[Rfam]
RNA sequence: CUGUAAGACACGGGGUGCCGCGCGAGCUACGCGCAGCUGAGAUAAGACCCGGGAACCUGUUCAGGUAAUGCUGACGAAGGGAUGUCACGCUGAUGCAUG
Numbered sequence: 001c002u003g004u005a006a007g008a009c010a011c012g013g014g015g016u017g018c019c020g021c022g023c024g025a026g027c028u029a030c031g032c033g034c035a036g037c038u039g040a041g042a043u044a045a046g047a048c049c050c051g052g053g054a055a056c057c058u059g060u061u062c063a064g065g066u067a068a069u070g071c072u073g074a075c076g077a078a079g080g081g082a083u084g085u086c087a088c089g090c091u092g093a094u095g096c097a098u099g
Base pairs, nucleotide, nucleotide: 007086008085009084010083011051012050013049014048016045017037018036020034021033022032023031024030056080057079058078061074062073063072064071
RNA: TPP riboswitch aptamer (THI element)